[Rfam]
RNA sequence: UCCGCAGGCCGGGCCCCUCUGGCGAUCCAUAGCUCUCCUCCCCGAGCGGAUCGUGAUGUCGGACUGCAUCG
Numbered sequence: 001u002c003c004g005c006a007g008g009c010c011g012g013g014c015c016c017c018u019c020u021g022g023c024g025a026u027c028c029a030u031a032g033c034u035c036u037c038c039u040c041c042c043c044g045a046g047c048g049g050a051u052c053g054u055g056a057u058g059u060c061g062g063a064c065u066g067c068a069u070c071g
Stems, first nucleotide, its partner, number of pairs: 006065002009062004022054007
RNA: terC RNA
Organism: Phenylobacterium glaciei